Shown here is a 133-nucleotide sequence from Rattus norvegicus, a member of the family "Small nucleolar RNA SNORA51".
RNA sequence: GGCCUCCUCAUGCUCACUGAAUGCUGUGUUCUUAUGCUGACAACAUAUAGAAAGGAGGCAGAGCAAACCGACUCUCUGUACAGCUUAACCCAGGCCAUUGUGCCUGAUCUAGAUUGUGAAUGGGGAUACAUGG
Numbered sequence: 001g002g003c004c005u006c007c008u009c010a011u012g013c014u015c016a017c018u019g020a021a022u023g024c025u026g027u028g029u030u031c032u033u034a035u036g037c038u039g040a041c042a043a044c045a046u047a048u049a050g051a052a053a054g055g056a057g058g059c060a061g062a063g064c065a066a067a068c069c070g071a072c073u074c075u076c077u078g079u080a081c082a083g084c085u086u087a088a089c090c091c092a093g094g095c096c097a098u099u100g101u102g103c104c105u106g107a108u109c110u111a112g113a114u115u116g117u118g119a120a121u122g123g124g125g126a127u128a129c130a131u132g133g
Stems, first nucleotide, its partner, number of pairs: 002059007022042002026037004072125004077120001086111002091106005
The match comes from Rfam's covariance-model search (108 bits). ACA51 is a member of the H/ACA class of snoRNA that guide the sites of modification of uridines to pseudouridines. The organism belongs to Rattus, within Eukaryota. By type it is an H/ACA-box small nucleolar RNA.